[Rfam]
RNA sequence: GAAUAACAAUAUCGUAUUCUAAAGACAGCUGGUGGAGCAAUCCGUAAAUCCAGCCGAGGAAUGUGCAAUGUGAAAACAGACGCUCUUUUCUCUUUGUCGAAAAGGCGUUUUUUUAUUGCGAUU
Numbered sequence: 001g002a003a004u005a006a007c008a009a010u011a012u013c014g015u016a017u018u019c020u021a022a023a024g025a026c027a028g029c030u031g032g033u034g035g036a037g038c039a040a041u042c043c044g045u046a047a048a049u050c051c052a053g054c055c056g057a058g059g060a061a062u063g064u065g066c067a068a069u070g071u072g073a074a075a076a077c078a079g080a081c082g083c084u085c086u087u088u089u090c091u092c093u094u095u096g097u098c099g100a101a102a103a104g105g106c107g108u109u110u111u112u113u114u115a116u117u118g119c120g121a122u123u
Stems, first nucleotide, its partner, number of pairs: 028054005034043003080108004085104006
A member of the RNA family "Ribosomal protein L10 leader" from Ruminococcus sp. CAG:403, 123 nucleotides long. The family's RNA type in Rfam is cis-regulatory leader. This family is a putative r-protein leader autoregulatory structure found in B. subtilis and other low-GC Gram-positive bacteria. NCBI's taxonomy places the organism under Bacteria, Bacillota, Clostridia, Eubacteriales, Ruminococcus.